[Rfam]
A member of the RNA family "Small nucleolar RNA snoR109" from Carpinus fangiana, 108 nucleotides long.
A reference for the family is Marker et al. (2002), "Experimental RNomics: identification of 140 candidates for small non-messenger RNAs in the plant Arabidopsis thaliana", Curr Biol.
A search with the family's covariance model found it, with a score of 56 bits.
Pairs were carried over by alignment from the consensus structure, which was predicted with WAR.
It is annotated as an H/ACA-box small nucleolar RNA.
RNA sequence: AGGUUGUAUUCUUUCCAACUAAGACAUCGGAGAGAAGUUUACUAGCUGGUUGUCGUGAGAUCUUUCUGAUCUCUGUCGACUAAUCUGCUUACCGAACUUCUUAUAUAC
Numbered sequence: 001a002g003g004u005u006g007u008a009u010u011c012u013u014u015c016c017a018a019c020u021a022a023g024a025c026a027u028c029g030g031a032g033a034g035a036a037g038u039u040u041a042c043u044a045g046c047u048g049g050u051u052g053u054c055g056u057g058a059g060a061u062c063u064u065u066c067u068g069a070u071c072u073c074u075g076u077c078g079a080c081u082a083a084u085c086u087g088c089u090u091a092c093c094g095a096a097c098u099u100c101u102u103a104u105a106u107a108c
Stems, first nucleotide, its partner, number of pairs: 032102008044089003048085004052080004